[Rfam]
RNA sequence: CUACCACUGGCAAAAGACGGAUCCUGGGAAACAGGCAGUGCUUAGGCACGUAAGCUCGGGGAUACUAGUCAUAUCCCGCCGCAUCACUUUUGUCUGGCC
Numbered sequence: 001c002u003a004c005c006a007c008u009g010g011c012a013a014a015a016g017a018c019g020g021a022u023c024c025u026g027g028g029a030a031a032c033a034g035g036c037a038g039u040g041c042u043u044a045g046g047c048a049c050g051u052a053a054g055c056u057c058g059g060g061g062a063u064a065c066u067a068g069u070c071a072u073a074u075c076c077c078g079c080c081g082c083a084u085c086a087c088u089u090u091u092g093u094c095u096g097g098c099c
Base pairs, nucleotide, nucleotide: 004097005096006095009094010093011092012091013090014089015088019085020084023035024034025033026032038049039048040047041046054082055081059077060076061075062074063073064072
RNA: Luteovirus cap-independent translation element (BTE)